[Rfam]
RNA: tRNA
RNA sequence: UGGGGAAUCGUCUAGUGGCAGGACUAUGGACUCUGACUCCAUCAACCUAGGUUCGAAUCCUAGUUCCCCAG
Numbered sequence: 001u002g003g004g005g006a007a008u009c010g011u012c013u014a015g016u017g018g019c020a021g022g023a024c025u026a027u028g029g030a031c032u033c034u035g036a037c038u039c040c041a042u043c044a045a046c047c048u049a050g051g052u053u054c055g056a057a058u059c060c061u062a063g064u065u066c067c068c069c070a071g
Base pairs, nucleotide, nucleotide: 001070002069003068004067005066006065007064010024011023012022013021026042027041028040029039030038047063048062049061050060051059